Rfam assigns this 116-nucleotide RNA sequence from Priestia veravalensis to the family "RNA Staph. aureus E (RoxS)".
The base pairs follow the family's consensus structure, which is taken from published work.
Gene Ontology term of the family: regulation of translational initiation.
Rfam's curators write: It was shown to be regulated by the presence of nitric oxide (NO). In Bacillus subtilis it controls expression of genes with functions related to oxidative stress and oxidation-reduction reactions and it was renamed RoxS (for related to oxidative stress).
RNA sequence: GUGAAGUUUAUCACAAAACAAACAUAUACCCCUUUGUUUGACCGUGAAAAAUUUCUCCCAUCCCCUUGUUGUCUUAGGACAAACAAAAAAGACUUGGCAUUUGCCAAGUCUUUUUU
Numbered sequence: 001g002u003g004a005a006g007u008u009u010a011u012c013a014c015a016a017a018a019c020a021a022a023c024a025u026a027u028a029c030c031c032c033u034u035u036g037u038u039u040g041a042c043c044g045u046g047a048a049a050a051a052u053u054u055c056u057c058c059c060a061u062c063c064c065c066u067u068g069u070u071g072u073c074u075u076a077g078g079a080c081a082a083a084c085a086a087a088a089a090a091g092a093c094u095u096g097g098c099a100u101u102u103g104c105c106a107a108g109u110c111u112u113u114u115u116u
Stems, first nucleotide, its partner, number of pairs: 003055006011047004019040006071084001075081001088113011